[Rfam]
RNA sequence: AGUAAAUGUGUUAAGUCGUAGGUAAGAGAACCUGUAGCAGGUUUGAGCCGAGCGGAGCGAGACGACAACGCGAACGCGUUGCCCGAAGGGUGAGGCCAGAGGCCGAAUCAAUCCCGCACGACCCACCA
Numbered sequence: 001a002g003u004a005a006a007u008g009u010g011u012u013a014a015g016u017c018g019u020a021g022g023u024a025a026g027a028g029a030a031c032c033u034g035u036a037g038c039a040g041g042u043u044u045g046a047g048c049c050g051a052g053c054g055g056a057g058c059g060a061g062a063c064g065a066c067a068a069c070g071c072g073a074a075c076g077c078g079u080u081g082c083c084c085g086a087a088g089g090g091u092g093a094g095g096c097c098a099g100a101g102g103c104c105g106a107a108u109c110a111a112u113c114c115c116g117c118a119c120g121a122c123c124c125a126c127c128a
Base pairs, nucleotide, nucleotide: 015119016118018117019116021114022113023111035092036091038089042087043086044085045084049059050058066081067080068079069078070077071076
Shown here is a 128-nucleotide RNA from Rouxiella badensis, a member of the family "RtT RNA".
The source organism's lineage runs through Bacteria, Pseudomonadati, Gammaproteobacteria, Yersiniaceae and Rouxiella.
About the family: This family represents a bacterial cis-regulatory element known as RtT RNA. The exact function of RtT is unknown although it is thought that it may be involved in changing the cellular response in relation to amino acid starvation.
By type it is a cis-regulatory element.
The base pairs follow the family's consensus structure, which is taken from published work.
Rfam 15.1 lists 651 matches to the family in 204 species.
The literature on the family includes a 1991 paper in Nucleic Acids Res by Bosl and Kersten, "A novel RNA product of the tyrT operon of Escherichia coli".
Gene Ontology term of the family: cellular response to amino acid starvation.